[Rfam]
RNA: mir-184 microRNA precursor family
RNA sequence: CUUUUCACGCUUCCUUAUCAUUUCGUCAGUCCAGUUGAUCUUAAACACUGGACGGAGAACUGAUAAGGGCCUGUGGGGGA
Dot-bracket structure: ...........(((((((((.(((.((..((..................))..)).))).)))))))))...........
Numbered sequence: 001c002u003u004u005u006c007a008c009g010c011u012u013c014c015u016u017a018u019c020a021u022u023u024c025g026u027c028a029g030u031c032c033a034g035u036u037g038a039u040c041u042u043a044a045a046c047a048c049u050g051g052a053c054g055g056a057g058a059a060c061u062g063a064u065a066a067g068g069g070c071c072u073g074u075g076g077g078g079g080a
Stems, first nucleotide, its partner, number of pairs: 012069009022059003026055002030051002